This 75-nucleotide sequence from Streptomyces sp. ADI95-17 belongs to the Rfam family "ASpks TB sRNA". Pairs were carried over by alignment from the consensus structure, which is taken from published work. The source organism's lineage runs through Bacteria, Bacillati, Actinomycetota, Streptomycetaceae and Streptomyces.
RNA sequence: CUUCACCGAGCCGAGCCACACCGGGCGGCCCGCGGGACGGUCCUUGCCGUACGUGGCGGCCAGCGCCUGCACCUC
Numbered sequence: 001c002u003u004c005a006c007c008g009a010g011c012c013g014a015g016c017c018a019c020a021c022c023g024g025g026c027g028g029c030c031c032g033c034g035g036g037a038c039g040g041u042c043c044u045u046g047c048c049g050u051a052c053g054u055g056g057c058g059g060c061c062a063g064c065g066c067c068u069g070c071a072c073c074u075c
Stems, first nucleotide, its partner, number of pairs: 016024002032070002038065002044059002047056003